[Rfam]
RNA: Streptomyces sRNA 4677
Organism: Streptomycetaceae bacterium MP113-05
RNA sequence: AGACCUGGGAUCUCCCGCCGCCCUCUUAAGAACUCUUGGAGAGAACCCUUCCCAAAACCAAACCCGGACGCCGUCGCUCGUACGGGUGAGAAUCCCGAUCAACAGCCGAAACCACCGGUUUCCACCCGUACGCUCGGCUGCACAAGUACCCAGACAUGCGACGACCCCCGCCAGGAGUGCAAUCCCGACGAGGGUCUGACCACCAAGGAAGAUUGGCGCUUCCCA
Numbered sequence: 001a002g003a004c005c006u007g008g009g010a011u012c013u014c015c016c017g018c019c020g021c022c023c024u025c026u027u028a029a030g031a032a033c034u035c036u037u038g039g040a041g042a043g044a045a046c047c048c049u050u051c052c053c054a055a056a057a058c059c060a061a062a063c064c065c066g067g068a069c070g071c072c073g074u075c076g077c078u079c080g081u082a083c084g085g086g087u088g089a090g091a092a093u094c095c096c097g098a099u100c101a102a103c104a105g106c107c108g109a110a111a112c113c114a115c116c117g118g119u120u121u122c123c124a125c126c127c128g129u130a131c132g133c134u135c136g137g138c139u140g141c142a143c144a145a146g147u148a149c150c151c152a153g154a155c156a157u158g159c160g161a162c163g164a165c166c167c168c169c170g171c172c173a174g175g176a177g178u179g180c181a182a183u184c185c186c187g188a189c190g191a192g193g194g195u196c197u198g199a200c201c202a203c204c205a206a207g208g209a210a211g212a213u214u215g216g217c218g219c220u221u222c223c224c225a
Stems, first nucleotide, its partner, number of pairs: 007204002016066002074089006105138005163196005169190002174185003207223005